[Rfam]
RNA: tRNA
RNA sequence: GGCCCCGUAGCGCAGUCUGGUUAGCGCGCCGCCCUGUCACGGCGGAGGUCGCGGGUUCAAGUCCCGUCGGGGUCG
Numbered sequence: 001g002g003c004c005c006c007g008u009a010g011c012g013c014a015g016u017c018u019g020g021u022u023a024g025c026g027c028g029c030c031g032c033c034c035u036g037u038c039a040c041g042g043c044g045g046a047g048g049u050c051g052c053g054g055g056u057u058c059a060a061g062u063c064c065c066g067u068c069g070g071g072g073u074c075g
Stems, first nucleotide, its partner, number of pairs: 001074007010027004029045005051067005